[Rfam]
RNA sequence: GUCAGCGACUCCAUGCGUGAAGCGCAGGGGCUUGUUUCGGCAAGCCUGUCGUUGUCCAGCCUUGGUUCCUGAUCCCGCUGGCCGGGAGGUGAAGGAACUCCGUUGAUCGGAUCAUGGCACCUCCGAAUGCCGCCUCAGUUCGGAGCUCUGCCGCUCGUCGUUAAUCGCUCGUUCGGGGUAUCGAGCAGUGCGAUGGGCUCAACAAGUCCGAUCAACCGUGGCGAGAGGAGCGACUU
Numbered sequence: 001g002u003c004a005g006c007g008a009c010u011c012c013a014u015g016c017g018u019g020a021a022g023c024g025c026a027g028g029g030g031c032u033u034g035u036u037u038c039g040g041c042a043a044g045c046c047u048g049u050c051g052u053u054g055u056c057c058a059g060c061c062u063u064g065g066u067u068c069c070u071g072a073u074c075c076c077g078c079u080g081g082c083c084g085g086g087a088g089g090u091g092a093a094g095g096a097a098c099u100c101c102g103u104u105g106a107u108c109g110g111a112u113c114a115u116g117g118c119a120c121c122u123c124c125g126a127a128u129g130c131c132g133c134c135u136c137a138g139u140u141c142g143g144a145g146c147u148c149u150g151c152c153g154c155u156c157g158u159c160g161u162u163a164a165u166c167g168c169u170c171g172u173u174c175g176g177g178g179u180a181u182c183g184a185g186c187a188g189u190g191c192g193a194u195g196g197g198c199u200c201a202a203c204a205a206g207u208c209c210g211a212u213c214a215a216c217c218g219u220g221g222c223g224a225g226a227g228g229a230g231c232g233a234c235u236u
Stems, first nucleotide, its partner, number of pairs: 001056001003054006010030002012027001015025002031044004059222003063218001064099007102216011117151002121145008131230001133228004153198009166188001167186005173180001
Dot-bracket structure: (.((((((.(((..((.......)).).))((((......))))....)))))).)..(((.((((((((......................)))))))..(((((((((((....((..((((((((..[.[[[[.))))))))....)).(((((((((....((((((.(......).))))).).))))))))).......))))))))))).).)))..]]]].]......

Rfam assigns this 236-nucleotide RNA from Ktedonobacteria bacterium brp13 to the family "HNH endonuclease-associated RNA and ORF (HEARO) RNA". The family's RNA type in Rfam is non-coding RNA gene. A search with the family's covariance model found it, with a score of 119 bits. The family has 139 seed sequences and 952 matches in Rfam 15.1.